Rfam assigns this 148-nucleotide sequence from Bacillus aquiflavi to the family "FMN riboswitch aptamer (RFN element)". Lineage of the source: Bacteria > Bacilli > Caryophanales > Bacillaceae > Bacillus. It scores 117 bits against the family's covariance model.

RNA sequence: UUUUUCCUUCGGGGUCGGGUGCAAUUCCCAACCGGCGGUAAUGAGGAGAAUUCCUCUCAGCCCGUGACCCGUUUUUGAACGUUCAAAAACGGCUGAUUUGGUGUAAUUCCAAAGCCGACAGUAAAAGUCUGGAUGGGAGAAGGAAUGA
Numbered sequence: 001u002u003u004u005u006c007c008u009u010c011g012g013g014g015u016c017g018g019g020u021g022c023a024a025u026u027c028c029c030a031a032c033c034g035g036c037g038g039u040a041a042u043g044a045g046g047a048g049a050a051u052u053c054c055u056c057u058c059a060g061c062c063c064g065u066g067a068c069c070c071g072u073u074u075u076u077g078a079a080c081g082u083u084c085a086a087a088a089a090c091g092g093c094u095g096a097u098u099u100g101g102u103g104u105a106a107u108u109c110c111a112a113a114g115c116c117g118a119c120a121g122u123a124a125a126a127g128u129c130u131g132g133a134u135g136g137g138a139g140a141a142g143g144a145a146u147g148a
Stems, first nucleotide, its partner, number of pairs: 004145007017029003031128002033117002035065004060115002069092004097113005119131003